Shown here is a 174-nucleotide RNA sequence from Actinoplanes italicus, a member of the family "c-di-AMP riboswitch aptamer (ydaO/yuaA leader)". This family represents a conserved RNA structure found upstream of the ydaO and yuaA genes in Bacillus subtilis and related genes in other bacteria. It scores 69 bits against the family's covariance model. Lineage of the source: Bacteria > Bacillati > Actinomycetota > Micromonosporaceae > Actinoplanes.
[Rfam]
RNA sequence: GUGGACGGACCGCCGAAUCCUGCCGCCGGCCACAGACGCGAUUCAGACGGCAGGAGCGGGGGACCCACUUUUCACGGCGCGGGUGUGACGCGCCUCGGGGUGAAGCCGUGAUCGAAAACGGCCGGGCCGUCUCUGCCCGAACCCGACAGCUCACCUCGCAGGCGUGGAGGAUCU
Numbered sequence: 001g002u003g004g005a006c007g008g009a010c011c012g013c014c015g016a017a018u019c020c021u022g023c024c025g026c027c028g029g030c031c032a033c034a035g036a037c038g039c040g041a042u043u044c045a046g047a048c049g050g051c052a053g054g055a056g057c058g059g060g061g062g063a064c065c066c067a068c069u070u071u072u073c074a075c076g077g078c079g080c081g082g083g084u085g086u087g088a089c090g091c092g093c094c095u096c097g098g099g100g101u102g103a104a105g106c107c108g109u110g111a112u113c114g115a116a117a118a119c120g121g122c123c124g125g126g127c128c129g130u131c132u133c134u135g136c137c138c139g140a141a142c143c144c145g146a147c148a149g150c151u152c153a154c155c156u157c158g159c160a161g162g163c164g165u166g167g168a169g170g171a172u173c174u
Stems, first nucleotide, its partner, number of pairs: 011164004018055008056159006066097001098144003106121004124138004